[Rfam]
RNA sequence: CCGGUUCGCGGCCUUUCCAGCAGGCUUUGUUGCCCUAGCAACGCAGGCACACCGUAGUGCUUGCUAUCACGGCAUUAUCGCCAGCGGUGCUGCCGUGAUGCGGUCUUCGUAAGGACCGCAACAUGAAGAUACGAUGCUUUUGUGUCGUGCUUCUUGUUUCUGGCACGUUGUGUCUUCACACAGACAGAAGCUACCCAGGUAAUUCUGUUCCCGUAGCGCUCAACGUCCAGAGCAGGUAAGCCAGGAGGCCGCCCUGUUGGGCGGCUUUCUUU
Number, nucleotide and partner (000 for none) at each position: 001c000002c000003g000004g012005u011006u000007c000008g000009c000010g000011g005012c004013c000014u000015u000016u000017c000018c000019a000020g000021c000022a000023g000024g000025c000026u000027u000028u000029g000030u000031u000032g164033c163034c162035c000036u000037a000038g000039c000040a000041a000042c000043g000044c063045a062046g061047g060048c059049a058050c057051a000052c000053c000054g000055u000056a000057g050058u049059g048060c047061u046062u045063g044064c000065u000066a099067u098068c097069a096070c095071g094072g093073c092074a091075u000076u089077a088078u087079c086080g085081c000082c000083a000084g000085c080086g079087g078088u077089g076090c000091u074092g073093c072094c071095g070096u069097g068098a067099u066100g119101c118102g117103g116104u115105c114106u113107u000108c000109g000110u000111a000112a000113g106114g105115a104116c103117c102118g101119c100120a157121a000122c000123a154124u000125g152126a151127a000128g000129a000130u149131a148132c147133g146134a145135u144136g143137c142138u000139u000140u000141u000142g137143u136144g135145u134146c133147g132148u131149g130150c000151u126152u125153c000154u123155u000156g000157u120158u000159u000160c000161u000162g034163g033164c032165a237166c236167g000168u235169u234170g233171u232172g000173u000174c000175u000176u000177c000178a000179c000180a000181c000182a000183g000184a000185c000186a000187g000188a000189a000190g194191c000192u000193a000194c190195c000196c000197a000198g000199g000200u000201a000202a000203u000204u000205c000206u000207g000208u000209u000210c000211c000212c225213g224214u223215a000216g000217c000218g000219c000220u000221c000222a000223a214224c213225g212226u000227c000228c000229a000230g000231a000232g171233c170234a169235g168236g166237u165238a000239a000240g000241c000242c000243a000244g270245g269246a267247g266248g265249c264250c263251g262252c261253c260254c259255u000256g000257u000258u000259g254260g253261g252262c251263g250264g249265c248266u247267u246268u000269c245270u244271u000272u000

The record is a 272-nucleotide RNA sequence from Salmonella enterica, which matches "ryfA RNA" in Rfam. For this family Rfam cites "Computational identification of noncoding RNAs in E. coli by comparative genomics" (Rivas et al., Curr Biol, 2001). By type it is a small RNA. The family's consensus secondary structure was predicted with RNAalifold. It scores 225 bits against the family's covariance model. This family consists of a number of bacterial RNA genes of 305 bases in length. The ryfA RNA gene is present in E. coli, Shigella flexneri and Salmonella species where it is found between the ydaN and dbpA genes. The function of this RNA is unknown.